[Rfam]
RNA sequence: UCGUCAUGAUAUUGAGGCGUCAGUGAUAACUGACGGGGAGUUAAAUUCACCGUACUGCGUACUGGUUGAACUCCUGUAAAAACUCAACAUAGCGUUACCCUGCUACACAAUAUCAGACG
Number, nucleotide and partner (000 for none) at each position: 001u000002c119003g118004u117005c116006a000007u115008g114009a113010u112011a111012u110013u109014g108015a000016g000017g000018c035019g034020u033021c032022a031023g030024u000025g000026a000027u000028a000029a000030c023031u022032g021033a020034c019035g018036g075037g074038g073039a072040g000041u000042u000043a000044a000045a000046u000047u069048c068049a067050c000051c000052g062053u061054a060055c059056u000057g000058c000059g055060u054061a053062c052063u000064g000065g000066u000067u049068g048069a047070a000071c000072u039073c038074c037075u036076g000077u000078a000079a000080a000081a000082a000083c000084u000085c000086a000087a000088c000089a000090u000091a000092g000093c000094g000095u000096u000097a000098c000099c000100c000101u000102g000103c000104u000105a000106c000107a000108c014109a013110a012111u011112a010113u009114c008115a007116g005117a004118c003119g002
Shown here is a 119-nucleotide RNA sequence from Salmonella enterica, a member of the family "EFASI RNA". Rfam classes the family as a small RNA. The sequence is in the family's curated seed alignment.